Background:
The record is a 214-nucleotide RNA, which matches "ilvB-OMG RNA" in Rfam.

[Rfam]
RNA sequence: GUCACGCGAACGGCAACGGUUAUUGGUGAGUACCCUCAUCCUCUGGCCUACCUCUAUAACGGGAUAGUUAUCUAGGCUGUUUGCGGGUUCCGUCAGUGUCUCGCAGGGUUAUGUGAUUCACGCUCGGGCUCGACACUGCGCUACCUCGCAGGGCGGCCGAACACGGGUUUCGUGAUCGAUGUUCUGGUAGGUUUCCGGAUCGGUCCGGCCAGUG
Numbered sequence: 001g002u003c004a005c006g007c008g009a010a011c012g013g014c015a016a017c018g019g020u021u022a023u024u025g026g027u028g029a030g031u032a033c034c035c036u037c038a039u040c041c042u043c044u045g046g047c048c049u050a051c052c053u054c055u056a057u058a059a060c061g062g063g064a065u066a067g068u069u070a071u072c073u074a075g076g077c078u079g080u081u082u083g084c085g086g087g088u089u090c091c092g093u094c095a096g097u098g099u100c101u102c103g104c105a106g107g108g109u110u111a112u113g114u115g116a117u118u119c120a121c122g123c124u125c126g127g128g129c130u131c132g133a134c135a136c137u138g139c140g141c142u143a144c145c146u147c148g149c150a151g152g153g154c155g156g157c158c159g160a161a162c163a164c165g166g167g168u169u170u171c172g173u174g175a176u177c178g179a180u181g182u183u184c185u186g187g188u189a190g191g192u193u194u195c196c197g198g199a200u201c202g203g204u205c206c207g208g209c210c211a212g213u214g
Stems, first nucleotide, its partner, number of pairs: 018048005025040006051076003056071005085131004090127003096121003101116005149186006156180001158178003162174004195208005
Rfam's curators put it in the seed alignment.